[Rfam]
Rfam assigns this 87-nucleotide sequence from Rhodnius prolixus to the family "mir-275 microRNA precursor family". Taxonomically the source falls in Rhodnius (Eukaryota, Panarthropoda, Neoheteroptera, Cimicomorpha). Its family is annotated with miRNA-mediated post-transcriptional gene silencing and RISC complex in the Gene Ontology. On this family, see Winter et al., Nucleic Acids Res 2007: "Anopheles gambiae miRNAs as actors of defence reaction against Plasmodium invasion".

RNA sequence: GUGACAUUACGGACGGGCGCUACUCAGGCACUGAUGACUGGGCAUUUAAUAGUCAGGUACCUGAAGUAGCGCGCGCCCUUGCUGUUA
Dot-bracket structure: ........(.((.(..((((((.......(((...((((...........)))).)))........))))))..).)).).......